RNA sequence: CUUCCUGUUUUAGUACCACCCAUCUGCUUCUUCACAAGGUGUGUGGCUAUGCUAACAGGACAGAGGAAGUGUCUGUCAAGAUCUGAAGGGGUGGAUGACCACACCCCCUCCACCUCUAUAUGAAUUGACAGUACAUCUAUAU
Dot-bracket structure: ...((((........((((.......................)))).........))))...............((((..............(((...................)))........)))).............